Rfam assigns this 87-nucleotide RNA from Novilysobacter defluvii to the family "Glycine riboswitch aptamer". The match comes from Rfam's covariance-model search (51 bits). The base pairs follow the family's consensus structure. Its family is annotated with glycine biosynthetic process in the Gene Ontology.
RNA sequence: AACCCCCCGGUGGGAGAAGCGGGCCCAGGCCCGCUGCCGAAGGCGCAACGCCCGUAAUCGCUCAGGCCCCCAAACCGCCGGGUGUGG
Numbered sequence: 001a002a003c004c005c006c007c008c009g010g011u012g013g014g015a016g017a018a019g020c021g022g023g024c025c026c027a028g029g030c031c032c033g034c035u036g037c038c039g040a041a042g043g044c045g046c047a048a049c050g051c052c053c054g055u056a057a058u059c060g061c062u063c064a065g066g067c068c069c070c071c072a073a074a075c076c077g078c079c080g081g082g083u084g085u086g087g
Base pairs, nucleotide, nucleotide: 006082007081008080009079010078011077012076013075019034020033021032022031036067037066038065039063040062043061044060045059049054